[Rfam]
RNA sequence: UACUUAUCCAGAAAGACUGAGGGAAAGGCCCUGUGAAGUCUUGGCAACCUGUAUUUUGCAAGGUGCUAAUUCCUACCGUCAGGUUGACGGAAAGAUAAGAU
Numbered sequence: 001u002a003c004u005u006a007u008c009c010a011g012a013a014a015g016a017c018u019g020a021g022g023g024a025a026a027g028g029c030c031c032u033g034u035g036a037a038g039u040c041u042u043g044g045c046a047a048c049c050u051g052u053a054u055u056u057u058g059c060a061a062g063g064u065g066c067u068a069a070u071u072c073c074u075a076c077c078g079u080c081a082g083g084u085u086g087a088c089g090g091a092a093a094g095a096u097a098a099g100a101u
Base pairs, nucleotide, nucleotide: 003099004098005097006096007095008094013042014041015040016039017038021031022030023029026074027073028072043067044066045065046064048063049062050060051059052058053057071093076090077089078088079087080086081085
RNA: SAM riboswitch aptamer (S box leader)